Notes
Rfam assigns this 87-nucleotide RNA sequence from Sphaeroforma arctica to the family "Selenocysteine transfer RNA". Gene Ontology term of the family: triplet codon-amino acid adaptor activity. A reference for the family is Lowe and Eddy (1997), "tRNAscan-SE: a program for improved detection of transfer RNA genes in genomic sequence", Nucleic Acids Res.

[Rfam]
RNA sequence: GCGAUCAUGAUCCGUGGGAGGUCCCCGGUGCGGACUUCAAAUCCGUAGACCAUUAGCGUGGUAGUAGUUCGAUUCUACCUUGAACGC
Numbered sequence: 001g002c003g004a005u006c007a008u009g010a011u012c013c014g015u016g017g018g019a020g021g022u023c024c025c026c027g028g029u030g031c032g033g034a035c036u037u038c039a040a041a042u043c044c045g046u047a048g049a050c051c052a053u054u055a056g057c058g059u060g061g062u063a064g065u066a067g068u069u070c071g072a073u074u075c076u077a078c079c080u081u082g083a084a085c086g087c
Stems, first nucleotide, its partner, number of pairs: 001087003005083003009079001012028003016025003029047006049062005064078004